[Rfam]
Description: Shown here is a 338-nucleotide sequence from Candidatus Bodocaedibacter vickermanii, a member of the family "Alphaproteobacteria transfer-messenger RNA". It is annotated as a non-coding RNA gene. Taxonomically the source falls in Candidatus Bodocaedibacter (Bacteria, Pseudomonadati, Alphaproteobacteria, Candidatus Paracaedibacteraceae). It scores 220 bits against the family's covariance model. The family is grouped with related families in Rfam's "tRNA clan".

RNA sequence: GUGUUUGAUCUUUGCAUUUAAUACAUGUAUAUUAAAUAUGUUGGUUUAGGCCAACUAUGAUGAUAAACGAUGUGCGGAAUAAGUGGAGCGGACCCGGGGGCGGUACCCGGCGCCUCCACCACUCUAACUGAGGGGGCGAAAUAGGAUCGACGCACAUAAUAAAGGUACGAUCUUUCAUCCGGCAUGGUAACCGCCGAUAUCGGGCUAAUUUUAUAAAUGCCAAAACUACAAAGGCACGUCGCGUAACUGCAGCUAAUCGUAACACUGUUAUCGGUGUAAGAGUAGCCGCAUAACGCGAAGCGGUUUGGGGGGCGCCGGGCAACAGAAAGCCCCCUGCU
Number, nucleotide and partner (000 for none) at each position: 001g000002u000003g000004u000005u000006u000007g000008a000009u000010c000011u000012u000013u000014g000015c000016a000017u000018u000019u000020a000021a000022u000023a000024c000025a000026u000027g000028u000029a000030u000031a000032u000033u000034a000035a000036a000037u000038a000039u000040g055041u054042u053043g052044g051045u000046u000047u000048a000049g000050g000051c044052c043053a042054a041055c040056u000057a000058u000059g179060a178061u177062g176063a175064u000065a000066a000067a000068c000069g172070a171071u170072g168073u167074g166075c165076g000077g000078a000079a000080u000081a000082a000083g000084u156085g155086g000087a000088g153089c152090g151091g000092a000093c000094c110095c109096g108097g107098g106099g000100g000101c000102g000103g000104u000105a000106c098107c097108c096109g095110g094111c138112g137113c136114c135115u134116c133117c132118a000119c000120c000121a000122c000123u000124c000125u000126a000127a000128c000129u000130g000131a000132g117133g116134g115135g114136g113137c112138g111139a000140a000141a000142u000143a000144g000145g000146a000147u000148c000149g000150a000151c090152g089153c088154a000155c085156a084157u000158a000159a000160u000161a000162a000163a000164g000165g075166u074167a073168c072169g000170a071171u070172c069173u000174u000175u063176c062177a061178u060179c059180c196181g195182g194183c193184a000185u207186g206187g205188u000189a000190a000191c203192c202193g183194c182195c181196g180197a000198u000199a000200u000201c000202g192203g191204g000205c187206u186207a185208a000209u000210u000211u000212u000213a000214u000215a000216a000217a000218u000219g000220c000221c000222a000223a000224a000225a000226c000227u000228a000229c000230a000231a000232a000233g000234g000235c000236a000237c000238g000239u000240c000241g000242c000243g000244u000245a000246a000247c000248u000249g000250c000251a000252g000253c000254u000255a000256a000257u000258c000259g000260u000261a000262a000263c000264a000265c000266u000267g000268u000269u000270a000271u000272c000273g000274g000275u000276g000277u000278a000279a000280g000281a000282g000283u000284a000285g000286c000287c000288g000289c000290a000291u000292a000293a000294c000295g000296c000297g000298a000299a000300g000301c317302g316303g315304u314305u000306u000307g334308g333309g332310g331311g330312g000313c000314g304315c303316c302317g301318g000319g000320c000321a000322a000323c000324a000325g000326a000327a000328a000329g000330c311331c310332c309333c308334c307335u000336g000337c000338u000